[Rfam]
RNA: SAM riboswitch aptamer (S box leader)
Organism: Bacillus cereus
RNA sequence: UUCUUAUCAAGAGAGAUGGAGGGACUGGCCCGGUGAAAUCUCAGCAACAGGCUAAAAAAGCACUGUGCUAAUUCCAGCAAACGUAAAAGGCGUUUGGAAGAUGAAGG
Dot-bracket structure: ((.(((((....(((((...(((.[[[[)))......)))))((((.((.(((.....)))..))))))...(]]]]((((((.......))))))..)))))).))